[Rfam]
RNA sequence: CACGUGGGGUUUGCGAACGCCCCGUGAGGCAUCGGCCCAAGACUCGCGUCCCGUAGGCUUAUCGCAGGAUGCCCCAUG
Numbered sequence: 001c002a003c004g005u006g007g008g009g010u011u012u013g014c015g016a017a018c019g020c021c022c023c024g025u026g027a028g029g030c031a032u033c034g035g036c037c038c039a040a041g042a043c044u045c046g047c048g049u050c051c052c053g054u055a056g057g058c059u060u061a062u063c064g065c066a067g068g069a070u071g072c073c074c075c076a077u078g
Base pairs, nucleotide, nucleotide: 005024006023007022008021009020010019046072047071048070049069050068051067
This 78-nucleotide sequence from Aliigemmobacter aestuarii belongs to the Rfam family "chrB-a RNA". A search with the family's covariance model found it, with a score of 63 bits. Taxonomically the source falls in Aliigemmobacter (Bacteria, Pseudomonadati, Pseudomonadota, Alphaproteobacteria).